RNA sequence: ACGAGAUGCCUGGGCCUUCUCCGCGGUGCUCACGCUAAGGUGGUCGCGGAGAGCCGGGCGCAGCCCCGCGAUCUCCCACCAGAUUCAGCCAGCAGCCGCUGCAACCCCAGGGAG
Numbered sequence: 001a002c003g004a005g006a007u008g009c010c011u012g013g014g015c016c017u018u019c020u021c022c023g024c025g026g027u028g029c030u031c032a033c034g035c036u037a038a039g040g041u042g043g044u045c046g047c048g049g050a051g052a053g054c055c056g057g058g059c060g061c062a063g064c065c066c067c068g069c070g071a072u073c074u075c076c077c078a079c080c081a082g083a084u085u086c087a088g089c090c091a092g093c094a095g096c097c098g099c100u101g102c103a104a105c106c107c108c109a110g111g112g113a114g
Stems, first nucleotide, its partner, number of pairs: 048076005054070001055068004090101004
RNA: Streptomyces-metK RNA